[Rfam]
RNA: Fluoride riboswitch aptamer (crcB RNA motif)
Organism: Zunongwangia atlantica
RNA sequence: AAGAAAUACGGCAAUGAGGUCUGCCUUAAACCGUUCCACCUGGAGCUAAUGACAUCUACCUUUAA
Number, nucleotide and partner (000 for none) at each position: 001a000002a000003g000004a000005a000006a000007u000008a000009c000010g025011g024012c023013a022014a000015u000016g056017a055018g000019g053020u052021c051022u013023g012024c011025c010026u000027u000028a000029a000030a000031c000032c000033g046034u045035u044036c043037c000038a000039c000040c000041u000042g000043g036044a035045g034046c033047u000048a000049a000050u000051g021052a020053c019054a000055u017056c016057u000058a000059c000060c000061u000062u000063u000064a000065a000